[Rfam]
RNA sequence: UCUGAAUCUCGAGGAAGCAUUUCUGCACACACCACGCUACUGAAACCAGCAUGUGGAAAUGCUUCUGCUACAUUCCGA
Dot-bracket structure: ((.((((.(.(.((((.((((((((((....(................)..)))))))))).)))).).).)))).))

Record summary:
This 78-nucleotide RNA sequence from Diceros bicornis belongs to the Rfam family "mir-147 microRNA precursor family". For this family Rfam cites "MicroRNA transcriptome in the newborn mouse ovaries determined by massive parallel sequencing" (Ahn et al., Mol Hum Reprod, 2010). The family's consensus secondary structure was predicted with RNAalifold. Rfam links the family to the GO terms miRNA-mediated post-transcriptional gene silencing and RISC complex. NCBI's taxonomy places the organism under Eukaryota, Opisthokonta, Amniota, Laurasiatheria, Diceros bicornis.